[Rfam]
RNA sequence: CGGGGAAAGAAGACCCUGUUGAGCUUGACUCUAGUUUGACAUUGUGAAAAGACAUAGAGGGUGUAGAAUAAGUGGGAGACUUCGGUCGACAGUGAAAUACCACUACCUUUAUCGUUUUUUUACUUAUUUAAUGAGGUAGAAGCGAGCUUCAUUGCUCACCUUCUAGCGUUAAGGUUCUUUACGAACUGAUCUAGGUUAAAGACAUUGUCAGGUGGGGAGUUUGGCUGGGGCGGCACAUCUGUUAAAAGAUAACGCAGGUGUCCUAAGGGGGACUCAUUGAGAACAGAAAUCUCAAGUAGAACAAAAGGGUAAAAGUCCCCUUGAUUUUGAUUUUCAGUGUGAAUACAAACCAUGAAAGUGUGGCCUAUCGAUCCUUUAGUCCCUUGAAAUUUAAGGCUAGAGGUGUCAGAAAAGUUACCACAGGGAUAACUGGCUUGUGGCAGCCAAGCGUUCAUAGCGACGUUGCUUUUUGAUCCUUCGAUGUCGGCUCUUCCUAUCAUACUGAAGCAGAAUUCAGUAAGCGUUGGAUUGUUCACCCACUAAUAGGGAACGUGAGCUGGGUUUAGACCGUCGUGAGACAGGUUAGUUUUACCCUA
Numbered sequence: 001c002g003g004g005g006a007a008a009g010a011a012g013a014c015c016c017u018g019u020u021g022a023g024c025u026u027g028a029c030u031c032u033a034g035u036u037u038g039a040c041a042u043u044g045u046g047a048a049a050a051g052a053c054a055u056a057g058a059g060g061g062u063g064u065a066g067a068a069u070a071a072g073u074g075g076g077a078g079a080c081u082u083c084g085g086u087c088g089a090c091a092g093u094g095a096a097a098u099a100c101c102a103c104u105a106c107c108u109u110u111a112u113c114g115u116u117u118u119u120u121u122a123c124u125u126a127u128u129u130a131a132u133g134a135g136g137u138a139g140a141a142g143c144g145a146g147c148u149u150c151a152u153u154g155c156u157c158a159c160c161u162u163c164u165a166g167c168g169u170u171a172a173g174g175u176u177c178u179u180u181a182c183g184a185a186c187u188g189a190u191c192u193a194g195g196u197u198a199a200a201g202a203c204a205u206u207g208u209c210a211g212g213u214g215g216g217g218a219g220u221u222u223g224g225c226u227g228g229g230g231c232g233g234c235a236c237a238u239c240u241g242u243u244a245a246a247a248g249a250u251a252a253c254g255c256a257g258g259u260g261u262c263c264u265a266a267g268g269g270g271g272a273c274u275c276a277u278u279g280a281g282a283a284c285a286g287a288a289a290u291c292u293c294a295a296g297u298a299g300a301a302c303a304a305a306a307g308g309g310u311a312a313a314a315g316u317c318c319c320c321u322u323g324a325u326u327u328u329g330a331u332u333u334u335c336a337g338u339g340u341g342a343a344u345a346c347a348a349a350c351c352a353u354g355a356a357a358g359u360g361u362g363g364c365c366u367a368u369c370g371a372u373c374c375u376u377u378a379g380u381c382c383c384u385u386g387a388a389a390u391u392u393a394a395g396g397c398u399a400g401a402g403g404u405g406u407c408a409g410a411a412a413a414g415u416u417a418c419c420a421c422a423g424g425g426a427u428a429a430c431u432g433g434c435u436u437g438u439g440g441c442a443g444c445c446a447a448g449c450g451u452u453c454a455u456a457g458c459g460a461c462g463u464u465g466c467u468u469u470u471u472g473a474u475c476c477u478u479c480g481a482u483g484u485c486g487g488c489u490c491u492u493c494c495u496a497u498c499a500u501a502c503u504g505a506a507g508c509a510g511a512a513u514u515c516a517g518u519a520a521g522c523g524u525u526g527g528a529u530u531g532u533u534c535a536c537c538c539a540c541u542a543a544u545a546g547g548g549a550a551c552g553u554g555a556g557c558u559g560g561g562u563u564u565a566g567a568c569c570g571u572c573g574u575g576a577g578a579c580a581g582g583u584u585a586g587u588u589u590u591a592c593c594c595u596a
Stems, first nucleotide, its partner, number of pairs: 003595003007590002015424004020420002022416005028220004035212007044123010054112007071104005078087002127200005137193004145156003173187005223236001224234003237259006262363002268320006274300002277295006301310002325349003330344004351360003374402006382396004433474001435472001437471001439467006448458002485560001486558004490552001491549005498523001501518006525539003529535001566584004570579003
A member of the RNA family "Eukaryotic large subunit ribosomal RNA" from Basidiobolus meristosporus, 596 nucleotides of a longer RNA. Lineage of the source: Eukaryota > Basidiobolomycota > Basidiobolales > Basidiobolaceae > Basidiobolus meristosporus. It scores 3310 bits against the family's covariance model. For this family Rfam cites "The comparative RNA web (CRW) site: an online database of comparative sequence and structure information for ribosomal, intron, and other RNAs" (Cannone et al., BMC Bioinformatics, 2002). The base pairs follow the family's consensus structure, which is taken from published work.